RNA sequence: ACGGGAAACCGACCAGAACCCUGGGCAGGGGCGGGGGACCCAGGUUUGUUGCCGUUUCCCCACGGCUUGGGGUGAAGCCGCCCGAACGGAGUCGUCUCCGCGCACGGCGGCCGGGCCACCUCCCGGUCCGAACCCGACAGCUCACCUCGCAGGCGUGCGGAGAGGGACC
Numbered sequence: 001a002c003g004g005g006a007a008a009c010c011g012a013c014c015a016g017a018a019c020c021c022u023g024g025g026c027a028g029g030g031g032c033g034g035g036g037g038a039c040c041c042a043g044g045u046u047u048g049u050u051g052c053c054g055u056u057u058c059c060c061c062a063c064g065g066c067u068u069g070g071g072g073u074g075a076a077g078c079c080g081c082c083c084g085a086a087c088g089g090a091g092u093c094g095u096c097u098c099c100g101c102g103c104a105c106g107g108c109g110g111c112c113g114g115g116c117c118a119c120c121u122c123c124c125g126g127u128c129c130g131a132a133c134c135c136g137a138c139a140g141c142u143c144a145c146c147u148c149g150c151a152g153g154c155g156u157g158c159g160g161a162g163a164g165g166g167a168c169c
Stems, first nucleotide, its partner, number of pairs: 010155002013153002019030003031150006041069006070135003078110004113129004
RNA: c-di-AMP riboswitch aptamer (ydaO/yuaA leader)
Organism: Streptomyces sp. FH025